[Rfam]
RNA sequence: GAUAUUCGAAUAUGCAUACCGAAGACAGUAGGUGCCUGCGCGGCUUAAUUCCCUACCGAGGUGUUAUGAUAAACGUUUUUGUUCGCUGCCUGCUUUGGCAGGUGCGAUUUACGGACCAUCAUGGCCUUCGCACUGUCUGCGGGGGCCUUUCUCAUGCACCGG
Numbered sequence: 001g002a003u004a005u006u007c008g009a010a011u012a013u014g015c016a017u018a019c020c021g022a023a024g025a026c027a028g029u030a031g032g033u034g035c036c037u038g039c040g041c042g043g044c045u046u047a048a049u050u051c052c053c054u055a056c057c058g059a060g061g062u063g064u065u066a067u068g069a070u071a072a073a074c075g076u077u078u079u080u081g082u083u084c085g086c087u088g089c090c091u092g093c094u095u096u097g098g099c100a101g102g103u104g105c106g107a108u109u110u111a112c113g114g115a116c117c118a119u120c121a122u123g124g125c126c127u128u129c130g131c132a133c134u135g136u137c138u139g140c141g142g143g144g145g146c147c148u149u150u151c152u153c154a155u156g157c158a159c160c161g162g
Base pairs, nucleotide, nucleotide: 028056029055030054031053032052034044035043036042123147124146125145126144127143128142129141130140131139132138

Rfam assigns this 162-nucleotide RNA sequence from Paenibacillus albus to the family "Ribosomal protein L10 leader". Rfam classes the family as a cis-regulatory leader. This family is a putative r-protein leader autoregulatory structure found in B. subtilis and other low-GC Gram-positive bacteria.